[Rfam]
RNA: tRNA
RNA sequence: GCGGGUGUGGCGGAAUGGUAGACGCAGCGGAUUCAAAAUCCGCCGAUGGCAACAUCAUGUCGGUUCGAGUCCGACCACCCGUA
Numbered sequence: 001g002c003g004g005g006u007g008u009g010g011c012g013g014a015a016u017g018g019u020a021g022a023c024g025c026a027g028c029g030g031a032u033u034c035a036a037a038a039u040c041c042g043c044c045g046a047u048g049g050c051a052a053c054a055u056c057a058u059g060u061c062g063g064u065u066c067g068a069g070u071c072c073g074a075c076c077a078c079c080c081g082u083a
Stems, first nucleotide, its partner, number of pairs: 001082007010025003027043005059075005